Shown here is a 130-nucleotide sequence from Geococcyx californianus, a member of the family "Small Cajal body specific RNA 4". The family's RNA type in Rfam is small Cajal body RNA. NCBI's taxonomy places the organism under Eukaryota, Craniata, Sarcopterygii, Neoaves, Geococcyx. About the family: scaRNAs are a specific class of small nuclear RNAs which localise to the Cajal bodies and guide the modification of RNA polymerase II transcribed spliceosomal RNAs U1, U2, U4, U5 and U12. For this family Rfam cites "Cajal body-specific small nuclear RNAs: a novel class of 2'-O-methylation and pseudouridylation guide RNAs" (Darzacq et al., EMBO J, 2002).
[Rfam]
RNA sequence: ACUGGAGGAUGAGUCAGUCCGAGUCUGAAGAGUGAGACUUGGAUCACAAAAGCCUCCUAAAAGAAGGGGGGAUGGGGAGAGCAGUCCUACUUCCAGAAGAGCACAGGGCUGACUGCACCAUCCGACACUG
Dot-bracket structure: ..((((((........(((.((((((........)))))).)))........))))).).........(((........(((((((((...(.(......).).))))))).))......))).......
Numbered sequence: 001a002c003u004g005g006a007g008g009a010u011g012a013g014u015c016a017g018u019c020c021g022a023g024u025c026u027g028a029a030g031a032g033u034g035a036g037a038c039u040u041g042g043a044u045c046a047c048a049a050a051a052g053c054c055u056c057c058u059a060a061a062a063g064a065a066g067g068g069g070g071g072a073u074g075g076g077g078a079g080a081g082c083a084g085u086c087c088u089a090c091u092u093c094c095a096g097a098a099g100a101g102c103a104c105a106g107g108g109c110u111g112a113c114u115g116c117a118c119c120a121u122c123c124g125a126c127a128c129u130g
Stems, first nucleotide, its partner, number of pairs: 003059001004057005017044003021040006069123003080114002082111007092103001094101001